Rfam assigns this 124-nucleotide RNA sequence from Lipotes vexillifer to the family "Small nucleolar RNA SNORA64/SNORA10 family". Lineage of the source: Eukaryota > Opisthokonta > Whippomorpha > Odontoceti > Lipotes. The base pairs follow the family's consensus structure, which is taken from published work. Rfam 15.1 lists 703 matches to the family in 311 species. The family's RNA type in Rfam is H/ACA-box small nucleolar RNA. This family belongs to the H/ACA class of small nucleolar RNAs (snoRNAs) which act as guides in the the modification of uridines to pseudouridines. This family includes the human snoRNAs U64 and ACA10 and mouse MBI-29. A search with the family's covariance model found it, with a score of 72 bits. Clan: SNORA64 clan. Its family is annotated with RNA processing and nucleolus in the Gene Ontology.
RNA sequence: ACUCUCUCAGCUUUGCAUGGUUGCACUUGUCUUCAUGUGUGUGACUUUCGUAACGGGGAGAGAGAGAAAGGAUCUCAGGAUCUCAGGUCUCCUGGUGGCCAGUCUUUCCUUGAGGGCCACAACA
Numbered sequence: 001a002c003u004c005u006c007u008c009a010g011c012u013u014u015g016c017a018u019g020g021u022u023g024c025a026c027u028u029g030u031c032u033u034c035a036u037g038u039g040u041g042u043g044a045c046u047u048u049c050g051u052a053a054c055g056g057g058g059a060g061a062g063a064g065a066g067a068a069a070g071g072a073u074c075u076c077a078g079g080a081u082c083u084c085a086g087g088u089c090u091c092c093u094g095g096u097g098g099c100c101a102g103u104c105u106u107u108c109c110u111u112g113a114g115g116g117c118c119a120c121a122a123c124a
Stems, first nucleotide, its partner, number of pairs: 002066007011058005019046008074114006085105003091097001